[Rfam]
RNA sequence: CCGGGACGACAGCCUCCCGGCCCUCCAGGCGGUGUCCCGCCCAAGCGCUGC
Numbered sequence: 001c002c003g004g005g006a007c008g009a010c011a012g013c014c015u016c017c018c019g020g021c022c023c024u025c026c027a028g029g030c031g032g033u034g035u036c037c038c039g040c041c042c043a044a045g046c047g048c049u050g051c
Stems, first nucleotide, its partner, number of pairs: 001020006010050004028041005
Annotation:
A member of the RNA family "chrB-b RNA" from Variovorax terrae, 51 nucleotides long.